[Rfam]
RNA sequence: GGCUCAAACUUGAAGUAGAGUUCUUUAGUAGGGUCGGACAAUCCUACUAACCUACUUUGCUUCAAAUUUGGGCCC
Numbered sequence: 001g002g003c004u005c006a007a008a009c010u011u012g013a014a015g016u017a018g019a020g021u022u023c024u025u026u027a028g029u030a031g032g033g034u035c036g037g038a039c040a041a042u043c044c045u046a047c048u049a050a051c052c053u054a055c056u057u058u059g060c061u062u063c064a065a066a067u068u069u070g071g072g073c074c075c
Base pairs, nucleotide, nucleotide: 001074002073003072004071005070006069007068008067011064012063013062014061015060016059017058018057019056020055021054025050026049027048028047029046030045032043033042034041
A member of the RNA family "mir-5928 microRNA precursor family" from Haemonchus placei, 75 nucleotides long.
The family's consensus secondary structure was predicted with RNAalifold.
The match comes from Rfam's covariance-model search (62 bits).
The family has 5 seed sequences and 1,672 matches in Rfam 15.1.
Gene Ontology terms of the family: RISC complex and miRNA-mediated post-transcriptional gene silencing.